Overview
Shown here is a 133-nucleotide RNA from Mus spicilegus, a member of the family "Small nucleolar RNA SNORA48". About the family: The snoRNA ACA 48 has been identified to guide pseudouridylation of the residue U3797 in the 28S rRNA subunit. A reference for the family is Ofengand and Bakin (1997), "Mapping to nucleotide resolution of pseudouridine residues in large subunit ribosomal RNAs from representative eukaryotes, prokaryotes, archaebacteria, mitochondria and chloroplasts", J Mol Biol.
RNA sequence: CCCCCUGUCAAUGGGCAAAGAGGCACCUUGUUAGUGGUGUUGUUCUUAGGACAGAGCAGAUGGCAGUUCUUUGUUCAUCCUAGCUUGAUGCUUGGAUUUGUAGCCAAAUGUGUUUUAUGCCUAGGACUCAUAC
Numbered sequence: 001c002c003c004c005c006u007g008u009c010a011a012u013g014g015g016c017a018a019a020g021a022g023g024c025a026c027c028u029u030g031u032u033a034g035u036g037g038u039g040u041u042g043u044u045c046u047u048a049g050g051a052c053a054g055a056g057c058a059g060a061u062g063g064c065a066g067u068u069c070u071u072u073g074u075u076c077a078u079c080c081u082a083g084c085u086u087g088a089u090g091c092u093u094g095g096a097u098u099u100g101u102a103g104c105c106a107a108a109u110g111u112g113u114u115u116u117a118u119g120c121c122u123a124g125g126a127c128u129c130a131u132a133c
Stems, first nucleotide, its partner, number of pairs: 001063002005059004012053002018047003022041006073127004087121001089119001093117003099112002102109001